[Rfam]
RNA: Mammalian CPEB3 ribozyme
RNA sequence: AGAGGUCCCAAGUUUGAGGCCAUAGUAGAAGUGCUUACAGCGCAGCCAUGUCAGAUCCCAAUGAAUCUGCAAGUUCUAAA
Numbered sequence: 001a002g003a004g005g006u007c008c009c010a011a012g013u014u015u016g017a018g019g020c021c022a023u024a025g026u027a028g029a030a031g032u033g034c035u036u037a038c039a040g041c042g043c044a045g046c047c048a049u050g051u052c053a054g055a056u057c058c059c060a061a062u063g064a065a066u067c068u069g070c071a072a073g074u075u076c077u078a079a080a
Stems, first nucleotide, its partner, number of pairs: 013048001018047003026078005031043003052069005058063001